Rfam assigns this 64-nucleotide sequence from Amylibacter sp. SFDW26 to the family "L2-Alphaproteobacteria ribosomal protein leader". Taxonomically the source falls in Amylibacter (Bacteria, Pseudomonadota, Rhodobacterales, Paracoccaceae). The match comes from Rfam's covariance-model search (54 bits).

[Rfam]
RNA sequence: ACGGACCUACGGGGCCGUAUAACCACAGCGGUCUGCGGAUCGCGCUAAAAACGGAAGACAGAAA
Number, nucleotide and partner (000 for none) at each position: 001a018002c017003g016004g015005a000006c014007c013008u012009a000010c000011g000012g008013g007014g006015c004016c003017g002018u001019a000020u000021a000022a000023c000024c000025a000026c000027a000028g043029c042030g041031g040032u039033c038034u000035g000036c000037g000038g033039a032040u031041c030042g029043c028044g000045c000046u000047a000048a000049a000050a000051a000052c000053g000054g000055a000056a000057g000058a000059c000060a000061g000062a000063a000064a000